RNA sequence: ACCGAGCUGGGUUGCGCCAGCUUGUAACCCAAGUGUGGGUUGUGAGUGAUUGGAAUGAAUUGUUUGCAUUUAAAGGGCGUGGGUCAUUUUUGUGAUUGCUGGCUUGCCUGUUCCAAGUUGAUGGUGGGCCAAUAGAAUUGGGCGAAGGCCUGAUUCGACUGGUUCUUAAAGAGGAGAGCACUGGGUCAGGCUGGAUACACAGAGCAGUCAUUUCUCUUCCCCCUUCAACAGUGGAAGGAAAACAAGCUGGUGUGCAAUUGGCCCACAACUUCCUCUUGAUCCAACGCAAUUCAGACUAUUCAGUUU
Numbered sequence: 001a002c003c004g005a006g007c008u009g010g011g012u013u014g015c016g017c018c019a020g021c022u023u024g025u026a027a028c029c030c031a032a033g034u035g036u037g038g039g040u041u042g043u044g045a046g047u048g049a050u051u052g053g054a055a056u057g058a059a060u061u062g063u064u065u066g067c068a069u070u071u072a073a074a075g076g077g078c079g080u081g082g083g084u085c086a087u088u089u090u091u092g093u094g095a096u097u098g099c100u101g102g103c104u105u106g107c108c109u110g111u112u113c114c115a116a117g118u119u120g121a122u123g124g125u126g127g128g129c130c131a132a133u134a135g136a137a138u139u140g141g142g143c144g145a146a147g148g149c150c151u152g153a154u155u156c157g158a159c160u161g162g163u164u165c166u167u168a169a170a171g172a173g174g175a176g177a178g179c180a181c182u183g184g185g186u187c188a189g190g191c192u193g194g195a196u197a198c199a200c201a202g203a204g205c206a207g208u209c210a211u212u213u214c215u216c217u218u219c220c221c222c223c224u225u226c227a228a229c230a231g232u233g234g235a236a237g238g239a240a241a242a243c244a245a246g247c248u249g250g251u252g253u254g255c256a257a258u259u260g261g262c263c264c265a266c267a268a269c270u271u272c273c274u275c276u277u278g279a280u281c282c283a284a285c286g287c288a289a290u291u292c293a294g295a296c297u298a299u300u301c302a303g304u305u306u
Stems, first nucleotide, its partner, number of pairs: 001040003004023007028037001030035001044305002047302003051298003056293002058290001060288001061286004066281001068280003072276001074274004079266008090257003093252002099250008108238002111236005117229005123223002126165006133158001135156009166171001173219006184209003191202003
Record summary
Shown here is a 306-nucleotide RNA from Zingiber officinale, a member of the family "Plant signal recognition particle RNA". The base pairs follow the family's consensus structure, which is taken from published work. Rfam links the family to the GO terms SRP-dependent cotranslational protein targeting to membrane, signal sequence recognition and signal recognition particle, endoplasmic reticulum targeting.